This 95-nucleotide sequence from Papaver somniferum belongs to the Rfam family "MIR535 microRNA precursor family". For this family Rfam cites "Conservation and divergence of microRNAs and their functions in Euphorbiaceous plants" (Zeng et al., Nucleic Acids Res, 2010). It scores 79 bits against the family's covariance model. Its family is annotated with miRNA-mediated post-transcriptional gene silencing and RISC complex in the Gene Ontology. The base pairs follow the family's consensus structure, which was predicted with RNAalifold. NCBI's taxonomy places the organism under Eukaryota, Spermatophyta, Magnoliopsida, Papaveroideae, Papaver.
[Rfam]
Nucleotides: 095
Stems, first nucleotide, its partner, number of pairs: 010088005016082002020078002023075001025073004030068005
Number, partner (000 for none) and nucleotide at each position: 001000a002000u003000c004000u005000u006000u007000g008000c009000a010088u011087g012086a013085c014084a015000a016082u017081g018000a019000g020078g021077g022000a023075g024000a025073g026072c027071a028070c029000g030068c031067u032066u033065g034064u035000c036000g037000g038000c039000g040000c041000u042000c043000a044000u045000g046000a047000a048000a049000g050000g051000g052000a053000c054000a055000u056000g057000a058000u059000u060000g061000u062000a063000u064034a065033c066032a067031a068030g069000a070028g071027u072026g073025u074000u075023c076000u077021c078020u079000c080000u081017c082016g083000g084014u085013g086012u087011c088010a089000u090000a091000u092000g093000a094000u095000c